[Rfam]
RNA sequence: CCUAUCGUGAGGUAAAUCUGAAGGAAGUCGGCGGCAAACCUUUGAGUUCUGAGGAACACGAAGUCACAUGAGGCUUAAUUUACUGGGUAAGCUAGCCUAACGAAGCAGAGCCCAAUAGCUCAUCCGAGAACUCUUUAUGUAAAUGUGCGCAGAUAGAUGACUGGAAAGUGUACGUU
Numbered sequence: 001c002c003u004a005u006c007g008u009g010a011g012g013u014a015a016a017u018c019u020g021a022a023g024g025a026a027g028u029c030g031g032c033g034g035c036a037a038a039c040c041u042u043u044g045a046g047u048u049c050u051g052a053g054g055a056a057c058a059c060g061a062a063g064u065c066a067c068a069u070g071a072g073g074c075u076u077a078a079u080u081u082a083c084u085g086g087g088u089a090a091g092c093u094a095g096c097c098u099a100a101c102g103a104a105g106c107a108g109a110g111c112c113c114a115a116u117a118g119c120u121c122a123u124c125c126g127a128g129a130a131c132u133c134u135u136u137a138u139g140u141a142a143a144u145g146u147g148c149g150c151a152g153a154u155a156g157a158u159g160a161c162u163g164g165a166a167a168g169u170g171u172a173c174g175u176u
Stems, first nucleotide, its partner, number of pairs: 003014004027176001029174002034169002039163001042160003045154001048153004064149001065147004073140002077132001079130002083128002085113004091106003
RNA: Group II catalytic intron D1-D4-3